[Rfam]
RNA: RAGATH-13 RNA
Organism: Legionella pneumophila
RNA sequence: GUUGAUUUGCCUCCUAUUUCGAGCAAUAUGGCAUUGCCGGGUUUCAACUUUGAGUGAGCCGCUCGAUCAACACUAAACUCAAAACAGGGCAGUA
Dot-bracket structure: ......((((((......((((((....((((...))))(((.((..........)))))))))))....................))))))..